This 254-nucleotide RNA from Streptomyces sp. NRRL WC-3605 belongs to the Rfam family "Streptomyces sRNA 4677". Lineage of the source: Bacteria > Actinomycetota > Kitasatosporales > Streptomycetaceae > Streptomyces. By type it is a small RNA. A search with the family's covariance model found it, with a score of 173 bits. Located in the intergenic region between anti-sigma factor SCO4677 gene and a putative regulatory protein gene SCO4676. scr4677 expression requires the SCO4677 activity and scr4677 sRNA itself seem to affect the levels of the SCO4676-associated transcripts. For this family Rfam cites "Complex intra-operonic dynamics mediated by a small RNA in Streptomyces coelicolor" (Hindra et al., PLoS One, 2014). Rfam 15.1 lists 563 matches to the family in 285 species.
RNA sequence: CGCUCCGGUCCCACCUGCGGUCCCUAUGCACUACCCACGAGGGAUAAAGCACCCCGCCAAGCCCCACCCCUCCCUCCCGCCGGGCAAACUCACUCCGGCGAGUGAAUAUGCCCAACUGGGCUGGAUUCGGGACCGGUUGCCUGCCGUACGCUCAGCGCCAGCAGCACGAGACGACCCCCAGACAUGCGACGGCCCUCGCCGGGACUGGCAUCCCGAUGCGAGGGCCUGACCACCGAGGAAGAAACGGCUUCCCG
Numbered sequence: 001c002g003c004u005c006c007g008g009u010c011c012c013a014c015c016u017g018c019g020g021u022c023c024c025u026a027u028g029c030a031c032u033a034c035c036c037a038c039g040a041g042g043g044a045u046a047a048a049g050c051a052c053c054c055c056g057c058c059a060a061g062c063c064c065c066a067c068c069c070c071u072c073c074c075u076c077c078c079g080c081c082g083g084g085c086a087a088a089c090u091c092a093c094u095c096c097g098g099c100g101a102g103u104g105a106a107u108a109u110g111c112c113c114a115a116c117u118g119g120g121c122u123g124g125a126u127u128c129g130g131g132a133c134c135g136g137u138u139g140c141c142u143g144c145c146g147u148a149c150g151c152u153c154a155g156c157g158c159c160a161g162c163a164g165c166a167c168g169a170g171a172c173g174a175c176c177c178c179c180a181g182a183c184a185u186g187c188g189a190c191g192g193c194c195c196u197c198g199c200c201g202g203g204a205c206u207g208g209c210a211u212c213c214c215g216a217u218g219c220g221a222g223g224g225c226c227u228g229a230c231c232a233c234c235g236a237g238g239a240a241g242a243a244a245c246g247g248c249u250u251c252c253c254g
Stems, first nucleotide, its partner, number of pairs: 007234003017076001019074001090105006120156005191226005197220003201214004237252005